The record is an 85-nucleotide RNA, which matches "Twister_sister_ribozyme" in Rfam. For this family Rfam cites "New classes of self-cleaving ribozymes revealed by comparative genomics analysis" (Weinberg et al., Nat Chem Biol, 2015). It is one of the family's seed sequences.
RNA sequence: ACAGCCCGCAAGGCCGACGCAUAACGCGCCGCCGGUGCAAGCCCGGCCCCGUUCCCACCAGGACGGGGGCGCUCAUGGGUCAAAA
Numbered sequence: 001a002c003a004g005c006c007c008g009c010a011a012g013g014c015c016g017a018c019g020c021a022u023a024a025c026g027c028g029c030c031g032c033c034g035g036u037g038c039a040a041g042c043c044c045g046g047c048c049c050c051g052u053u054c055c056c057a058c059c060a061g062g063a064c065g066g067g068g069g070c071g072c073u074c075a076u077g078g079g080u081c082a083a084a085a
Stems, first nucleotide, its partner, number of pairs: 004080004013070003018028003031047004048067006